[Rfam]
RNA sequence: AGUUUCUUAUAGGGGUGGUCUUAAAACAAGAUCUGAGAAUAUACCCAAUUAACCUGAUCUGGGUAAUGCCAGCGUAGGAAAAAAAGAAACAGCUAAGG
Numbered sequence: 001a002g003u004u005u006c007u008u009a010u011a012g013g014g015g016u017g018g019u020c021u022u023a024a025a026a027c028a029a030g031a032u033c034u035g036a037g038a039a040u041a042u043a044c045c046c047a048a049u050u051a052a053c054c055u056g057a058u059c060u061g062g063g064u065a066a067u068g069c070c071a072g073c074g075u076a077g078g079a080a081a082a083a084a085a086g087a088a089a090c091a092g093c094u095a096a097g098g
Base pairs, nucleotide, nucleotide: 006086007085008084010082012046013045014044016041017033018032019031020030021029053078054077055076056075059072060071061070062069
Dot-bracket structure: .....(((.(.(((.((((((.......))))).......)..)))......((((..((((......))))..))))...).)))............

Background:
TPP riboswitch aptamer (THI element): a 98-nucleotide sequence from Chitinophaga oryziterrae. Vitamin B(1) in its active form thiamin pyrophosphate (TPP) is an essential coenzyme that is synthesised by coupling of pyrimidine and thiazole moieties in bacteria. The previously detected thiamin-regulatory element, thi box was extended, resulting in a new, highly conserved RNA secondary structure, the THI element, which is widely distributed in eubacteria and also occurs in some archaea. Analysis of operon structures identified a large number of new candidate thiamin-regulated genes, mostly transporters, in various prokaryotic organisms. The THI element is a riboswitch that directly binds to TPP to regulate gene expression through a variety of mechanisms in archaea, bacteria and eukaryotes. through a variety of mechanisms in archaea, bacteria and eukaryotes. A search with the family's covariance model found it, with a score of 65 bits. The source organism's lineage runs through Bacteria, Pseudomonadati, Chitinophagia, Chitinophagales and Chitinophaga.